[Rfam]
RNA sequence: AAUACAAGCGAUGCAUCCACUCGUAUAAUCCUGGAAAUAUGGUCCGGAAGUUUCUACCAAACUACCGUAAAUAGUUUGACUACGAGGGGAUUAGAGUCGUGC
Numbered sequence: 001a002a003u004a005c006a007a008g009c010g011a012u013g014c015a016u017c018c019a020c021u022c023g024u025a026u027a028a029u030c031c032u033g034g035a036a037a038u039a040u041g042g043u044c045c046g047g048a049a050g051u052u053u054c055u056a057c058c059a060a061a062c063u064a065c066c067g068u069a070a071a072u073a074g075u076u077u078g079a080c081u082a083c084g085a086g087g088g089g090a091u092u093a094g095a096g097u098c099g100u101g102c
Base pairs, nucleotide, nucleotide: 018088020086021085022084023083024082025081029049031047032046033045034044035043058078059077060076061075062074063073064072

Rfam assigns this 102-nucleotide sequence from Melghirimyces profundicolus to the family "Purine riboswitch aptamer". Pairs were carried over by alignment from the consensus structure, which is taken from published work. Lineage of the source: Bacteria > Bacillota > Bacilli > Thermoactinomycetaceae > Melghirimyces. A search with the family's covariance model found it, with a score of 87 bits.